tRNA: an 83-nucleotide RNA from Rubritalea profundi. It scores 64 bits against the family's covariance model. Taxonomically the source falls in Rubritalea (Bacteria, Pseudomonadati, Verrucomicrobiia, Rubritaleaceae). Pairs were carried over by alignment from the consensus structure, which is taken from published work.
RNA sequence: GGGUAGAUGGCCGAGUGGUUAAAGGCGGCAGACUGUAAAUCUGCUCACGUAAGUGUACGAAGGUUCGAAUCCUUCUCUGCCCA
Numbered sequence: 001g002g003g004u005a006g007a008u009g010g011c012c013g014a015g016u017g018g019u020u021a022a023a024g025g026c027g028g029c030a031g032a033c034u035g036u037a038a039a040u041c042u043g044c045u046c047a048c049g050u051a052a053g054u055g056u057a058c059g060a061a062g063g064u065u066c067g068a069a070u071c072c073u074u075c076u077c078u079g080c081c082c083a
Stems, first nucleotide, its partner, number of pairs: 001082007010026003028044005059075005
Dot-bracket structure: (((((((..(((...........))).(((((.......)))))..............(((((.......)))))))))))).